[Rfam]
RNA sequence: UUUGCACCUCAACCCAAGAAUUGCCGCUUCUUGUAGUGGCGGUUUAAACAGGGGUGCACACAGCAAGUGGAUCUCGUCGCCUUUGGGGGCUGUGACUGUGCCCCUCAAAGUGAACUCAGAGGUUCCACACCC
Numbered sequence: 001u002u003u004g005c006a007c008c009u010c011a012a013c014c015c016a017a018g019a020a021u022u023g024c025c026g027c028u029u030c031u032u033g034u035a036g037u038g039g040c041g042g043u044u045u046a047a048a049c050a051g052g053g054g055u056g057c058a059c060a061c062a063g064c065a066a067g068u069g070g071a072u073c074u075c076g077u078c079g080c081c082u083u084u085g086g087g088g089g090c091u092g093u094g095a096c097u098g099u100g101c102c103c104c105u106c107a108a109a110g111u112g113a114a115c116u117c118a119g120a121g122g123u124u125c126c127a128c129a130c131c132c
Stems, first nucleotide, its partner, number of pairs: 003058007019044010069125007081110005086104005
Background
This 132-nucleotide RNA sequence from Heterocephalus glaber belongs to the Rfam family "Small nucleolar RNA SNORA68". The family's consensus secondary structure was predicted with PFOLD. Rfam describes the family as follows. U68 is a member of the H/ACA class of small nucleolar RNAs (snoRNAs) which act as guides in the the modification of uridines to pseudouridines.